[Rfam]
RNA sequence: UAGAUUUGAAGUUGGAAAUCGCAACCAACGAGCUAUUUUAUAGAUAGUAACCAGAGAUGACAGGAUACGCCGUCCUACCAAGUCUA
Numbered sequence: 001u002a003g004a005u006u007u008g009a010a011g012u013u014g015g016a017a018a019u020c021g022c023a024a025c026c027a028a029c030g031a032g033c034u035a036u037u038u039u040a041u042a043g044a045u046a047g048u049a050a051c052c053a054g055a056g057a058u059g060a061c062a063g064g065a066u067a068c069g070c071c072g073u074c075c076u077a078c079c080a081a082g083u084c085u086a
Base pairs, nucleotide, nucleotide: 001086002085003084004083005082006081007080008079011029012028013027014026015025019072021070022069032048033047034046035045036044037043038042059078062076063075064074
Rfam assigns this 86-nucleotide RNA from Terrisporobacter othiniensis to the family "skipping-rope RNA". The organism belongs to Terrisporobacter, within Bacteria. It scores 46 bits against the family's covariance model.